[Rfam]
RNA sequence: CGACCGGUACGCCGGUCGGCCCGACCCCGGUACCUGACACGGCCGGGGCGG
Numbered sequence: 001c002g003a004c005c006g007g008u009a010c011g012c013c014g015g016u017c018g019g020c021c022c023g024a025c026c027c028c029g030g031u032a033c034c035u036g037a038c039a040c041g042g043c044c045g046g047g048g049c050g051g
Stems, first nucleotide, its partner, number of pairs: 001018007021051003025048007
L17-Actino-Proteobacteria ribosomal protein leader: a 51-nucleotide RNA sequence from Microbispora sp. ATCC PTA-5024. Rfam's curators put it in the seed alignment. The family's consensus secondary structure is taken from published work.